The family of this 498-nucleotide part of an RNA from Thecamonas trahens is "Eukaryotic large subunit ribosomal RNA". Lineage of the source: Eukaryota > Apusozoa > Apusomonadidae > Thecamonas > Thecamonas trahens.
RNA sequence: UAGAAGAAUGUAGGCGAGGGAAGUCGGCAAACUGGAUCCGUAACUUUGGAAAGGAUUGGCUCUGCGGGUGCGCGGGAGGCAUUCUGGGCUUGUUCUGGUAGGACUUUUUUGUCAGUCGUGAGUCGGGCUUGGCGCAAGCCGAGGGCGAUUGAUGAGCUGAGGAGGGCUCGGCCAGGGGUAGUUUAGAGUUUGUCCCCGCAAUUUACUUGCACCAACGCAGAACUGGUACGGACAAGGGGAAUCCGACUGUUUAAUUAAAACAAAGCGAACCGAUGGCCGGAAAUGGUGUUGACGGUUCGUGAUUUCUGCCCGGUGCUCUGAAUGUCAAUGUGAAGAGAUUCAAGCAAGCGCGGGUUAACGGCGGGAGUAACUAUGACUCUCUUAAGGUAGCCAAAUGCCUCGUCAUCUAAUUAGUGACGCGCAUGAAUGGAUUAACGAGAUUCCCACUGUCCCCGUGUACUAUCUAGCGAAACCACAGCCAAGGGAACGGGCUUGGCA
Dot-bracket structure: ((((.....(((.(((.(((..............(((((....(....)...)))))((.((((((((((((((((.(((((((.((((.....(((((.((.((((((((.(..((((.(((((....................))))).))))).)))))))).)).).)))).....)))).)))..))))))))).........)))))..)))))).))(...).......(((((((((..(((.........)))..((((((((...((((....)))).....))))))))...(((.(((..((((((.(..(((.....((((....)))).....))))))))..)))))((((((.......))))))(...)...............(((((.......)))))..........)))....)).)))))))....))).))).)))..))))............(((((........)))))..